[Rfam]
RNA sequence: UUUCUGCUGCAUGCGCUGACCUGUCAGCCAUCGCCAGCAGUCACGGUCUUCAGGCUGCGCUGCGGAGUCUUCCGCGUCCGACCACCUCGUCCGCAUCGCAUCAUGUCGCGGACGCGCGCCCACAGGGCGUCGAUGC
Numbered sequence: 001u002u003u004c005u006g007c008u009g010c011a012u013g014c015g016c017u018g019a020c021c022u023g024u025c026a027g028c029c030a031u032c033g034c035c036a037g038c039a040g041u042c043a044c045g046g047u048c049u050u051c052a053g054g055c056u057g058c059g060c061u062g063c064g065g066a067g068u069c070u071u072c073c074g075c076g077u078c079c080g081a082c083c084a085c086c087u088c089g090u091c092c093g094c095a096u097c098g099c100a101u102c103a104u105g106u107c108g109c110g111g112a113c114g115c116g117c118g119c120c121c122a123c124a125g126g127g128c129g130u131c132g133a134u135g136c
Stems, first nucleotide, its partner, number of pairs: 011031003015028005037058006045082001047080001059078001061076005108136003116130006
The family of this 136-nucleotide sequence from Acidomonas methanolica is "radC RNA". The family's consensus secondary structure is taken from published work. The match comes from Rfam's covariance-model search (65 bits). Rfam 15.1 lists 500 matches to the family in 142 species.